RNA: Ribosomal protein L20 leader
Organism: Bacillus sp. AFS018417
RNA sequence: UGGAACAAGUAGAAGCACCCGCUUCUCACCUGAUUGACGCGAAAGCAGUUACCAGGUAAAUGUAUUUCUUACUUAAGAUAUUACAAGUGUGGGUGUCAUAUACCCGCACUUUUUUGUUUGG
Numbered sequence: 001u002g003g004a005a006c007a008a009g010u011a012g013a014a015g016c017a018c019c020c021g022c023u024u025c026u027c028a029c030c031u032g033a034u035u036g037a038c039g040c041g042a043a044a045g046c047a048g049u050u051a052c053c054a055g056g057u058a059a060a061u062g063u064a065u066u067u068c069u070u071a072c073u074u075a076a077g078a079u080a081u082u083a084c085a086a087g088u089g090u091g092g093g094u095g096u097c098a099u100a101u102a103c104c105c106g107c108a109c110u111u112u113u114u115u116g117u118u119u120g121g
Stems, first nucleotide, its partner, number of pairs: 011026006028057003036050003039046002088108009